The family of this 76-nucleotide RNA from Ameiurus melas is "mir-7563 microRNA precursor family". The source organism's lineage runs through Eukaryota, Metazoa, Eumetazoa, Teleostomi and Ameiurus. The match comes from Rfam's covariance-model search (81 bits).
RNA sequence: AUCACAUACUUACCUACUAUAUAGUAGCUGAGAUGCAUGUAUUUUGCCUAUUAUAUAGUAGGUAAGUACGCGGUUU
Numbered sequence: 001a002u003c004a005c006a007u008a009c010u011u012a013c014c015u016a017c018u019a020u021a022u023a024g025u026a027g028c029u030g031a032g033a034u035g036c037a038u039g040u041a042u043u044u045u046g047c048c049u050a051u052u053a054u055a056u057a058g059u060a061g062g063u064a065a066g067u068a069c070g071c072g073g074u075u076u
Base pairs, nucleotide, nucleotide: 001074002073003072005070007068008067009066010065011064012063013062014061015060017058018057019056020055021054022053023052024051025050026049027048029046030045031044033042034041035040